[Rfam]
RNA: c-di-GMP-I-GGC riboswitch aptamer
Organism: Rubrobacter tropicus
RNA sequence: CCACGAAAAGGCAAACCCGCCGCGAGGCGGGGGCGCAAAGCCGCGGGCCUCUGCGAGGCAGCCGGGCUGCCGAAA
Numbered sequence: 001c002c003a004c005g006a007a008a009a010g011g012c013a014a015a016c017c018c019g020c021c022g023c024g025a026g027g028c029g030g031g032g033g034c035g036c037a038a039a040g041c042c043g044c045g046g047g048c049c050u051c052u053g054c055g056a057g058g059c060a061g062c063c064g065g066g067c068u069g070c071c072g073a074a075a
Base pairs, nucleotide, nucleotide: 011036012035016031017030018029019028020027021026034061039068040067041066042065044064045063046062047059048058049057